[Rfam]
RNA sequence: UUGGUUAGAACUGGACACAGGUUGACGUCGCAACGGCGUCAACACCUUGGCUCGCCACGCCGGCAGCGAGCCGCCAACGGCAGAGUUUUUCUGCCAGACCUCAGUUGAGGUCGACGCGACAAAAACAGUCAAC
Numbered sequence: 001u002u003g004g005u006u007a008g009a010a011c012u013g014g015a016c017a018c019a020g021g022u023u024g025a026c027g028u029c030g031c032a033a034c035g036g037c038g039u040c041a042a043c044a045c046c047u048u049g050g051c052u053c054g055c056c057a058c059g060c061c062g063g064c065a066g067c068g069a070g071c072c073g074c075c076a077a078c079g080g081c082a083g084a085g086u087u088u089u090u091c092u093g094c095c096a097g098a099c100c101u102c103a104g105u106u107g108a109g110g111u112c113g114a115c116g117c118g119a120c121a122a123a124a125a126c127a128g129u130c131a132a133c
Stems, first nucleotide, its partner, number of pairs: 021043009049072007079095006097112006
This 133-nucleotide RNA from Pseudomonas fluorescens belongs to the Rfam family "rmf RNA". It is annotated as a cis-regulatory element. Rfam's curators put it in the seed alignment. Lineage of the source: Bacteria > Pseudomonadota > Pseudomonadales > Pseudomonadaceae > Pseudomonas fluorescens.